[Rfam]
RNA sequence: CGGCGUGCCGCCCGCCGGAAGGGGCGGCGGCGGGGCUGCGCCCCGUUCGGAAAGG
Numbered sequence: 001c002g003g004c005g006u007g008c009c010g011c012c013c014g015c016c017g018g019a020a021g022g023g024g025c026g027g028c029g030g031c032g033g034g035g036c037u038g039c040g041c042c043c044c045g046u047u048c049g050g051a052a053a054g055g
Base pairs, nucleotide, nucleotide: 007028008027009026010025011024012023029047030046031045032044033043034042

The family of this 55-nucleotide sequence is "M23 RNA". By type it is a small RNA. The sequence is in the family's curated seed alignment.